[Rfam]
RNA sequence: UGAGCAGAGAUGUGUGUAUCGUCGUUGCGCGGAAUUCGUUCGAUAAUGCGCUUCGAUCGAAAGAGUUCUCUGCGACAUCGGAUUUGGGGAAGAUGGGCAGUUGUCUUUCAGUUUUUGUUCGUUGAAAUUUGUUCAACAAUCAUCUUCCCCACAUUU
Numbered sequence: 001u002g003a004g005c006a007g008a009g010a011u012g013u014g015u016g017u018a019u020c021g022u023c024g025u026u027g028c029g030c031g032g033a034a035u036u037c038g039u040u041c042g043a044u045a046a047u048g049c050g051c052u053u054c055g056a057u058c059g060a061a062a063g064a065g066u067u068c069u070c071u072g073c074g075a076c077a078u079c080g081g082a083u084u085u086g087g088g089g090a091a092g093a094u095g096g097g098c099a100g101u102u103g104u105c106u107u108u109c110a111g112u113u114u115u116u117g118u119u120c121g122u123u124g125a126a127a128u129u130u131g132u133u134c135a136a137c138a139a140u141c142a143u144c145u146u147c148c149c150c151a152c153a154u155u156u
Stems, first nucleotide, its partner, number of pairs: 004073007014051006086150011100137004
A member of the RNA family "small nucleolar RNA snoR135" from Genlisea aurea, 156 nucleotides long. On this family, see Chen and Wu, Nucleic Acids Res 2009: "Mining small RNA sequencing data: a new approach to identify small nucleolar RNAs in Arabidopsis". Taxonomically the source falls in Genlisea (Eukaryota, Tracheophyta, asterids, Lentibulariaceae). The base pairs follow the family's consensus structure, which was predicted with RNAalifold.